[Rfam]
RNA sequence: CGAUGAGGUAGAGGCUGCGGCUUAUAUAAGUAUGGCGGACGAGGUACAGCGAAUAUCGUUGACUCCGGCAGAAAGGAUAAGUCGCCGAAGCUUGGAUAUAUUCACUGUAUAUCCAGGCUGGCGGUGUUUUCGAACAGGAACACCACUGUCAUGUUUUCUUACUGGAAACGUGGAGAGCUACUUUCGGA
Numbered sequence: 001c002g003a004u005g006a007g008g009u010a011g012a013g014g015c016u017g018c019g020g021c022u023u024a025u026a027u028a029a030g031u032a033u034g035g036c037g038g039a040c041g042a043g044g045u046a047c048a049g050c051g052a053a054u055a056u057c058g059u060u061g062a063c064u065c066c067g068g069c070a071g072a073a074a075g076g077a078u079a080a081g082u083c084g085c086c087g088a089a090g091c092u093u094g095g096a097u098a099u100a101u102u103c104a105c106u107g108u109a110u111a112u113c114c115a116g117g118c119u120g121g122c123g124g125u126g127u128u129u130u131c132g133a134a135c136a137g138g139a140a141c142a143c144c145a146c147u148g149u150c151a152u153g154u155u156u157u158c159u160u161a162c163u164g165g166a167a168a169c170g171u172g173g174a175g176a177g178c179u180a181c182u183u184u185c186g187g188a
Stems, first nucleotide, its partner, number of pairs: 006183006017085009033070002036067004089119012120147002123144008149173007

Rfam assigns this 188-nucleotide sequence from Bacillus sp. V5-8f to the family "Lysine riboswitch aptamer". It scores 130 bits against the family's covariance model. Lineage of the source: Bacteria > Bacillati > Bacillota > Bacillaceae > Bacillus.